[Rfam]
RNA sequence: GGUCAACGCAAGGAGGCAGACAUGGGACGUGUUUAUUCUCUCAAUGUCCUGGUAGUCGGUGCAGCGUUUGUAUUCGUGGCGUCAAUGCUCUUCAUCUAGGCGCCACAGGUUCUCCCCGCUACCAACCACUCUCGCAUCCGUGAACGCUUGAUACAUCCAGCACUUUUCUGAAAACGCAUGCUCCUUGGAGCAUGCGUUUU
Numbered sequence: 001g002g003u004c005a006a007c008g009c010a011a012g013g014a015g016g017c018a019g020a021c022a023u024g025g026g027a028c029g030u031g032u033u034u035a036u037u038c039u040c041u042c043a044a045u046g047u048c049c050u051g052g053u054a055g056u057c058g059g060u061g062c063a064g065c066g067u068u069u070g071u072a073u074u075c076g077u078g079g080c081g082u083c084a085a086u087g088c089u090c091u092u093c094a095u096c097u098a099g100g101c102g103c104c105a106c107a108g109g110u111u112c113u114c115c116c117c118g119c120u121a122c123c124a125a126c127c128a129c130u131c132u133c134g135c136a137u138c139c140g141u142g143a144a145c146g147c148u149u150g151a152u153a154c155a156u157c158c159a160g161c162a163c164u165u166u167u168c169u170g171a172a173a174a175c176g177c178a179u180g181c182u183c184c185u186u187g188g189a190g191c192a193u194g195c196g197u198u199u200u
Stems, first nucleotide, its partner, number of pairs: 015048004024040004171200013
RNA: Rhizobiales sRNA Atu_C9